[Rfam]
RNA: Pseudomonas sRNA P26
Organism: Shewanella mangrovi
RNA sequence: UAAUAACUUACUCCACUCAGUUGCAUAACUGGGUGAAGGCUGACGGUUUUUUAACCGUCGGCCU
Dot-bracket structure: .............(((((...(....)...)))))..((((((((((......)))))))))).